[Rfam]
RNA sequence: GAUGGGCGCGCGGGAGAGUGCGACCGGCCUUUCAGGCCAGCAAUGUCGCCGCCGAAGGAGCAACCACCCCGGAAUCUCUCAGGCAACAGGGACCGCGCAGCCCGA
Numbered sequence: 001g002a003u004g005g006g007c008g009c010g011c012g013g014g015a016g017a018g019u020g021c022g023a024c025c026g027g028c029c030u031u032u033c034a035g036g037c038c039a040g041c042a043a044u045g046u047c048g049c050c051g052c053c054g055a056a057g058g059a060g061c062a063a064c065c066a067c068c069c070c071g072g073a074a075u076c077u078c079u080c081a082g083g084c085a086a087c088a089g090g091g092a093c094c095g096c097g098c099a100g101c102c103c104g105a
Stems, first nucleotide, its partner, number of pairs: 008098006020049004051084003054080002058078003064072002
Record summary
The family of this 105-nucleotide sequence from Sphingomonas sp. OV641 is "Glycine riboswitch aptamer". It scores 57 bits against the family's covariance model. This family represents the bacterial glycine riboswitch. The organism belongs to Sphingomonas, within Bacteria.